[Rfam]
RNA sequence: GCCAAGUGAUGUAAAACAGAUAGCAUAGCACGCAGUGCAAAGAUGACUCUCAUCUAUCACCCAAGACUGAUGGCU
Dot-bracket structure: ((((.......................((((...))))................................)))).
RNA: Small nucleolar RNA SNORD83